[Rfam]
RNA sequence: AGAUGGGGCAAGGUCUGGGGUCAGCACCGGGCAUGGGGCUGCAGGACCCCCAUGCUCAUGUGUGUGCCCAGCCCGUGCUGCCGAGGA
Numbered sequence: 001a002g003a004u005g006g007g008g009c010a011a012g013g014u015c016u017g018g019g020g021u022c023a024g025c026a027c028c029g030g031g032c033a034u035g036g037g038g039c040u041g042c043a044g045g046a047c048c049c050c051c052a053u054g055c056u057c058a059u060g061u062g063u064g065u066g067c068c069c070a071g072c073c074c075g076u077g078c079u080g081c082c083g084a085g086g087a
Stems, first nucleotide, its partner, number of pairs: 004084001006082001008081002011079002018074004025064003028060001030056007
Shown here is an 87-nucleotide RNA from Ciconia maguari, a member of the family "NoRC associated RNA, pRNA".
It is annotated as a non-coding RNA gene.
On this family, see Mayer et al., EMBO Rep 2008: "The structure of NoRC-associated RNA is crucial for targeting the chromatin remodelling complex NoRC to the nucleolus".
It scores 36 bits against the family's covariance model.